[Rfam]
RNA sequence: GGGUUACUCCUUGGCGCUUGCGCGCUUUGUUUGAUAAAGAUUCGCACCUAUAUCAAACCGGGUAACCUCACCUUUGGCAAGGCCAUACUGUCAGAUCAAGUCGGAACUACUACACAUAAGGAUUGGUGGAUAACCUAACCCGGAGUUCCUUAAAAUAUCAGACUCACGAUCACUUCUUGUAU
Dot-bracket structure: (((((((.((...((((....))))...((((((((.((........)).)))))))).)))))))))......(((...((..((...(((.(((...))).).)).((((.(........)))))..))..))....)))..........................((((.....)).))

The family of this 182-nucleotide RNA sequence from Sulfuriferula sp. AH1 is "Proteobacterial sRNA psRNA2". The pairing is the family consensus, mapped onto this sequence. Taxonomically the source falls in Sulfuriferula (Bacteria, Pseudomonadota, Betaproteobacteria, Sulfuricellaceae). The family's RNA type in Rfam is small RNA.